[Rfam]
RNA sequence: GCCCUCUGCUUCCCUUUUCUAGUGGACCUGAACACUGGUCUUGGUGGCCACAGAAGGAGAAAGAGUAAGAAGCUAUUCUCAGCAUUGUAGUCUGGUGUGGUGCAUGUGGGUUAGGUUCCAAUAGGG
Numbered sequence: 001g002c003c004c005u006c007u008g009c010u011u012c013c014c015u016u017u018u019c020u021a022g023u024g025g026a027c028c029u030g031a032a033c034a035c036u037g038g039u040c041u042u043g044g045u046g047g048c049c050a051c052a053g054a055a056g057g058a059g060a061a062a063g064a065g066u067a068a069g070a071a072g073c074u075a076u077u078c079u080c081a082g083c084a085u086u087g088u089a090g091u092c093u094g095g096u097g098u099g100g101u102g103c104a105u106g107u108g109g110g111u112u113a114g115g116u117u118c119c120a121a122u123a124g125g126g
Stems, first nucleotide, its partner, number of pairs: 004059004019047003023043001025040004073114003077110003086104003
Annotation: Rfam assigns this 126-nucleotide RNA from Urocitellus parryii to the family "Small nucleolar RNA SNORA61". ACA61 is a member of the H/ACA class of snoRNA that guide the sites of modification of uridines to pseudouridines. Rfam links the family to the GO terms RNA processing and nucleolus. The family has 25 seed sequences and 881 matches in Rfam 15.1.